[Rfam]
RNA sequence: UGAAUCCCGCCUGGGUAAGUGCUAGCCACACGCCCAGUAUCGAGUGUUGCAGCCAAUCAAGUAGGCAUCAUGAGCUGAAGUGGUUGGUUGAAGCGUACACAGAAAGGUAGUGAGGGUGAAUGGAUCGCAGGUGGCCCUGCGGCCAUGAACGGGAAUAGCUCCGAAAUUUGGUAACUGUUGGAACUGCUUACGGUUUGUGCAUGCCUGAAAGCAACAUCGCUUGGUGCGUCAUUGGCGAGCCUCAAGCGGAGACCCGGAGUCGGCGCCCC
Numbered sequence: 001u002g003a004a005u006c007c008c009g010c011c012u013g014g015g016u017a018a019g020u021g022c023u024a025g026c027c028a029c030a031c032g033c034c035c036a037g038u039a040u041c042g043a044g045u046g047u048u049g050c051a052g053c054c055a056a057u058c059a060a061g062u063a064g065g066c067a068u069c070a071u072g073a074g075c076u077g078a079a080g081u082g083g084u085u086g087g088u089u090g091a092a093g094c095g096u097a098c099a100c101a102g103a104a105a106g107g108u109a110g111u112g113a114g115g116g117u118g119a120a121u122g123g124a125u126c127g128c129a130g131g132u133g134g135c136c137c138u139g140c141g142g143c144c145a146u147g148a149a150c151g152g153g154a155a156u157a158g159c160u161c162c163g164a165a166a167u168u169u170g171g172u173a174a175c176u177g178u179u180g181g182a183a184c185u186g187c188u189u190a191c192g193g194u195u196u197g198u199g200c201a202u203g204c205c206u207g208a209a210a211g212c213a214a215c216a217u218c219g220c221u222u223g224g225u226g227c228g229u230c231a232u233u234g235g236c237g238a239g240c241c242u243c244a245a246g247c248g249g250a251g252a253c254c255c256g257g258a259g260u261c262g263g264c265g266c267c268c269c
Stems, first nucleotide, its partner, number of pairs: 012036004019031003023238001025236002038105001040103002044100004048095002050090010158260006180254002184251002186212003192205003217249008226240002